[Rfam]
RNA sequence: GGCACGGCUAUUGCUUUGAUAUAACCAGCAACGAGCCAACGGCGGUUCGUUAAAUAGAUUUAAGACAAAGGUGUCUC
Numbered sequence: 001g002g003c004a005c006g007g008c009u010a011u012u013g014c015u016u017u018g019a020u021a022u023a024a025c026c027a028g029c030a031a032c033g034a035g036c037c038a039a040c041g042g043c044g045g046u047u048c049g050u051u052a053a054a055u056a057g058a059u060u061u062a063a064g065a066c067a068a069a070g071g072u073g074u075c076u077c
Stems, first nucleotide, its partner, number of pairs: 031050007